The record is an 85-nucleotide RNA from Planctomicrobium piriforme, which matches "tRNA" in Rfam. Rfam links the family to the GO term triplet codon-amino acid adaptor activity. Lineage of the source: Bacteria > Pseudomonadati > Planctomycetota > Planctomycetales > Planctomicrobium. It scores 49 bits against the family's covariance model. Rfam's curators write: Transfer RNA (tRNA) molecules are approximately 80 nucleotides in length. Pairs were carried over by alignment from the consensus structure, which is taken from published work. It is annotated as a transfer RNA.
RNA sequence: GCGGUCGUGGCGAAACUGGCAGACGCGCAAGAUUCAGGUUCUUGUGUCCGAUAAGGACGUGGAGGUUCGACUCCUCUCGACCGCA
Numbered sequence: 001g002c003g004g005u006c007g008u009g010g011c012g013a014a015a016c017u018g019g020c021a022g023a024c025g026c027g028c029a030a031g032a033u034u035c036a037g038g039u040u041c042u043u044g045u046g047u048c049c050g051a052u053a054a055g056g057a058c059g060u061g062g063a064g065g066u067u068c069g070a071c072u073c074c075u076c077u078c079g080a081c082c083g084c085a
Stems, first nucleotide, its partner, number of pairs: 001084007010026003028044005061077005